Notes: Rfam assigns this 162-nucleotide RNA sequence from Actinoallomurus iriomotensis to the family "c-di-AMP riboswitch aptamer (ydaO/yuaA leader)". A search with the family's covariance model found it, with a score of 63 bits. NCBI's taxonomy places the organism under Bacteria, Bacillati, Actinomycetota, Actinomycetes, Actinoallomurus. This family represents a conserved RNA structure found upstream of the ydaO and yuaA genes in Bacillus subtilis and related genes in other bacteria.

[Rfam]
RNA sequence: CGCACGCGCAAGCCAGCGCGUCCGGUGAGCCGGGGACCCAACUCGCGGAGCGCUUUCAGGGGGCUCUCCCACCGCGCUCGGUCCCGGGGUGAAUCCGUAACCGGUAGGGCUUCUCCUUGCCCGAACCCGUCAGCUAACCCGGUAGGCGGCCCAGGAGAAAGA
Numbered sequence: 001c002g003c004a005c006g007c008g009c010a011a012g013c014c015a016g017c018g019c020g021u022c023c024g025g026u027g028a029g030c031c032g033g034g035g036a037c038c039c040a041a042c043u044c045g046c047g048g049a050g051c052g053c054u055u056u057c058a059g060g061g062g063g064c065u066c067u068c069c070c071a072c073c074g075c076g077c078u079c080g081g082u083c084c085c086g087g088g089g090u091g092a093a094u095c096c097g098u099a100a101c102c103g104g105u106a107g108g109g110c111u112u113c114u115c116c117u118u119g120c121c122c123g124a125a126c127c128c129g130u131c132a133g134c135u136a137a138c139c140c141g142g143u144a145g146g147c148g149g150c151c152c153a154g155g156a157g158a159a160a161g162a
Stems, first nucleotide, its partner, number of pairs: 001027002029143006039086001087128003095104003107122004